[Rfam]
Nucleotides: 090
Base pairs, nucleotide, nucleotide: 002089003088004087005086006085007084
Number, partner (000 for none) and nucleotide at each position: 001000u002089c003088a004087g005086g006085a007084u008000c009000a010000g011000u012000g013000a014000u015000g016000u017000g018000a019000u020000u021000u022000c023000a024000a025000c026000u027000g028000c029000g030000u031000u032000a033000u034000c035000u036000a037000u038000c039000u040000g041000a042000a043000a044000a045000a046000u047000c048000c049000c050000u051000a052000g053000u054000a055000a056000g057000g058000a059000u060000u061000u062000g063000a064000g065000a066000u067000g068000a069000c070000a071000a072000u073000u074000a075000c076000c077000u078000a079000c080000u081000g082000a083000g084007g085006u086005c087004c088003u089002g090000u